[Rfam]
RNA sequence: GAGAGGAUGAUGAAAUAAAUCAGACGGAUUCCCACUGAUUUCACUAAAUAUGAUUUUACUCAACCAGCUACUUCUGACUCUC
Numbered sequence: 001g002a003g004a005g006g007a008u009g010a011u012g013a014a015a016u017a018a019a020u021c022a023g024a025c026g027g028a029u030u031c032c033c034a035c036u037g038a039u040u041u042c043a044c045u046a047a048a049u050a051u052g053a054u055u056u057u058a059c060u061c062a063a064c065c066a067g068c069u070a071c072u073u074c075u076g077a078c079u080c081u082c
Stems, first nucleotide, its partner, number of pairs: 001082005
Background:
The family of this 82-nucleotide RNA from Ricinus communis is "Small nucleolar RNA R12". Pairs were carried over by alignment from the consensus structure, which was predicted with PFOLD. The family has 9 seed sequences and 992 matches in Rfam 15.1. About the family: snoR12 is a C/D box small nucleolar RNA, which acts as a methylation guide for 25S ribosomal RNA in plants. snoR12 has been alternatively named snoZ44 in Arabidopsis and snoZ131 in rice. The match comes from Rfam's covariance-model search (83 bits). Taxonomically the source falls in Ricinus (Eukaryota, Pentapetalae, rosids, Malpighiales).